Record summary:
Rfam assigns this 82-nucleotide RNA from Oryza meyeriana to the family "Small nucleolar RNA Z163/Z177 family". NCBI's taxonomy places the organism under Eukaryota, Viridiplantae, Poaceae, Oryzoideae, Oryza meyeriana. Gene Ontology terms of the family: RNA processing and nucleolus. A reference for the family is Chen et al. (2003), "The high diversity of snoRNAs in plants: identification and comparative study of 120 snoRNA genes from Oryza sativa", Nucleic Acids Res.
RNA sequence: UGGCCAAUCUAGUGAUGAAACGUGAGUUGUACAGACACUCUAGUGAGUUAAAUGAAGUACACCCAUGGAGUCUCUGAGGCCU
Numbered sequence: 001u002g003g004c005c006a007a008u009c010u011a012g013u014g015a016u017g018a019a020a021c022g023u024g025a026g027u028u029g030u031a032c033a034g035a036c037a038c039u040c041u042a043g044u045g046a047g048u049u050a051a052a053u054g055a056a057g058u059a060c061a062c063c064c065a066u067g068g069a070g071u072c073u074c075u076g077a078g079g080c081c082u
Stems, first nucleotide, its partner, number of pairs: 002081004